[Rfam]
RNA sequence: AUGUUAUCAAGAAAGGUGGAGGGAUUAGACCCUAUGAAACCUUAGCAACCCUUUGUGCAAACAAAGAAGGUGCUAAAUUCUACCAGAGUGAAAACUCGAGGAUAGAUAACCC
Numbered sequence: 001a002u003g004u005u006a007u008c009a010a011g012a013a014a015g016g017u018g019g020a021g022g023g024a025u026u027a028g029a030c031c032c033u034a035u036g037a038a039a040c041c042u043u044a045g046c047a048a049c050c051c052u053u054u055g056u057g058c059a060a061a062c063a064a065a066g067a068a069g070g071u072g073c074u075a076a077a078u079u080c081u082a083c084c085a086g087a088g089u090g091a092a093a094a095c096u097c098g099a100g101g102a103u104a105g106a107u108a109a110c111c112c
Base pairs, nucleotide, nucleotide: 003110004109005108006107007106008105013043014042015041016040017039021032022031023030026082027081028080029079044074045073046072047071049070050069051066052065053064054063078104083101084100086097087096088095

A member of the RNA family "SAM riboswitch aptamer (S box leader)" from Tenacibaculum lutimaris, 112 nucleotides long. The match comes from Rfam's covariance-model search (77 bits).